Rfam assigns this 99-nucleotide sequence from Sphingopyxis sp. 113P3 to the family "Repression of heat shock gene expression (ROSE) element". The family's RNA type in Rfam is RNA thermoregulator. Rfam's curators write: This family represents a 5' UTR cis-regulatory element found in heat shock mRNAs and is known as the ROSE (repression of heat shock gene expression) element.
RNA sequence: CCGGACGCCAUUCCGGGUCCGGUGGACACAGAGGGCGUCGGCUCUCUCCGACGCUUCUCAUGCCCAGAUUGCUUCACAUGGAGGAUUUGGAAAUGAGAA
Numbered sequence: 001c002c003g004g005a006c007g008c009c010a011u012u013c014c015g016g017g018u019c020c021g022g023u024g025g026a027c028a029c030a031g032a033g034g035g036c037g038u039c040g041g042c043u044c045u046c047u048c049c050g051a052c053g054c055u056u057c058u059c060a061u062g063c064c065c066a067g068a069u070u071g072c073u074u075c076a077c078a079u080g081g082a083g084g085a086u087u088u089g090g091a092a093a094u095g096a097g098a099a
Stems, first nucleotide, its partner, number of pairs: 001022006008016002032056001034055008057097005064090007072083003